A member of the RNA family "SAM riboswitch aptamer (S box leader)" from Polaribacter aquimarinus, 109 nucleotides long.
RNA sequence: AUGUUAUCAAGAAAGGUGUAGGGAUUAGACCCGUUGAAACCUUAGCAACCCUUUAAACUUUAAAGAAGGUGCUAAAUUCUACUCAGUUUUUUAAUUGGAUAGAUAACAA
Numbered sequence: 001a002u003g004u005u006a007u008c009a010a011g012a013a014a015g016g017u018g019u020a021g022g023g024a025u026u027a028g029a030c031c032c033g034u035u036g037a038a039a040c041c042u043u044a045g046c047a048a049c050c051c052u053u054u055a056a057a058c059u060u061u062a063a064a065g066a067a068g069g070u071g072c073u074a075a076a077u078u079c080u081a082c083u084c085a086g087u088u089u090u091u092u093a094a095u096u097g098g099a100u101a102g103a104u105a106a107c108a109a
Base pairs, nucleotide, nucleotide: 002108003107004106005105006104007103008102013043014042015041016040017039021032022031023030026081027080028079029078044073045072046071047070049069050068051065052064053063054062077101082098083097085095087093

Gene Ontology term of the family: regulation of gene expression.